[Rfam]
RNA: ALIL pseudoknot
RNA sequence: GGCUUAUUUUGCCCAGGCGGAGCUCGACCGCCCAUUCAAGCGAUGACUGCCUUCAUUGACGACCAUCGCGAGGAGUAUGGGGUCGAGCCGAUCUGUCGGGUUCUGCCGAUCGCCCCU
Numbered sequence: 001g002g003c004u005u006a007u008u009u010u011g012c013c014c015a016g017g018c019g020g021a022g023c024u025c026g027a028c029c030g031c032c033c034a035u036u037c038a039a040g041c042g043a044u045g046a047c048u049g050c051c052u053u054c055a056u057u058g059a060c061g062a063c064c065a066u067c068g069c070g071a072g073g074a075g076u077a078u079g080g081g082g083u084c085g086a087g088c089c090g091a092u093c094u095g096u097c098g099g100g101u102u103c104u105g106c107c108g109a110u111c112g113c114c115c116c117u
Stems, first nucleotide, its partner, number of pairs: 016032005079116004089112002092109002095106002098103001